[Rfam]
RNA sequence: CAUCCUUUACCACGUGAGCUGCUGACGUUGUCGGCAACCCUCCCCCAGUAGUCAUGAUCUGAAAGACUACGACACGGACUUCCGUGUAGAUCGAACCCAAGAUCGCACCAGCUUCCGGUAGCGCGAUCAAUCAACCCACAGGUUGAUGGAAGC
Numbered sequence: 001c002a003u004c005c006u007u008u009a010c011c012a013c014g015u016g017a018g019c020u021g022c023u024g025a026c027g028u029u030g031u032c033g034g035c036a037a038c039c040c041u042c043c044c045c046c047a048g049u050a051g052u053c054a055u056g057a058u059c060u061g062a063a064a065g066a067c068u069a070c071g072a073c074a075c076g077g078a079c080u081u082c083c084g085u086g087u088a089g090a091u092c093g094a095a096c097c098c099a100a101g102a103u104c105g106c107a108c109c110a111g112c113u114u115c116c117g118g119u120a121g122c123g124c125g126a127u128c129a130a131u132c133a134a135c136c137c138a139c140a141g142g143u144u145g146a147u148g149g150a151a152g153c
Stems, first nucleotide, its partner, number of pairs: 012041001014039001015037001021035006048070006056092004072087006123153002130147007

Background:
Shown here is a 153-nucleotide RNA sequence from Pseudomonas aeruginosa, a member of the family "radC RNA". The base pairs follow the family's consensus structure, which is taken from published work. It is annotated as a cis-regulatory element. It is one of the family's seed sequences. The source organism's lineage runs through Bacteria, Pseudomonadati, Pseudomonadota, Pseudomonadaceae and Pseudomonas aeruginosa.